RNA sequence: CUAGACCAUGCAGCAACGACUCGUAUAUCCCCAAAACCAUGGCUUGGGGGUUUCUACAAGGAGCCUACGGAUCCUAACUACGAGUACGGGAGCGUGUACC
Number, nucleotide and partner (000 for none) at each position: 001c000002u000003a000004g000005a000006c000007c000008a000009u000010g000011c000012a000013g000014c000015a000016a000017c000018g000019a085020c084021u083022c082023g081024u080025a079026u000027a000028u000029c049030c048031c047032c046033a045034a044035a000036a000037c000038c000039a000040u000041g000042g000043c000044u034045u033046g032047g031048g030049g029050g000051u000052u000053u000054c000055u000056a000057c000058a000059a075060g074061g073062a072063g000064c070065c000066u000067a000068c000069g000070g064071a000072u062073c061074c060075u059076a000077a000078c000079u025080a024081c023082g022083a021084g020085u019086a000087c000088g000089g000090g000091a000092g000093c000094g000095u000096g000097u000098a000099c000100c000
Shown here is a 100-nucleotide RNA from Paenibacillus sp. J31TS4, a member of the family "Purine riboswitch aptamer". Taxonomically the source falls in Paenibacillus (Bacteria, Bacillati, Caryophanales, Paenibacillaceae). A search with the family's covariance model found it, with a score of 45 bits.